[Rfam]
RNA sequence: UGUUGGAUGAUGAAAAGAAUCAGACGGAUUCCCACUGAUCUGUAAUACAUGAUAUCAUAAGCAGCUACGUCUGACAACA
Dot-bracket structure: (((((.....................................................................)))))

Background: Shown here is a 79-nucleotide RNA sequence from Carya illinoinensis, a member of the family "Small nucleolar RNA R12". From the family's description: snoR12 is a C/D box small nucleolar RNA, which acts as a methylation guide for 25S ribosomal RNA in plants. snoR12 has been alternatively named snoZ44 in Arabidopsis and snoZ131 in rice. On this family, see Chen et al., Nucleic Acids Res 2003: "The high diversity of snoRNAs in plants: identification and comparative study of 120 snoRNA genes from Oryza sativa". Rfam 15.1 lists 992 matches to the family in 220 species.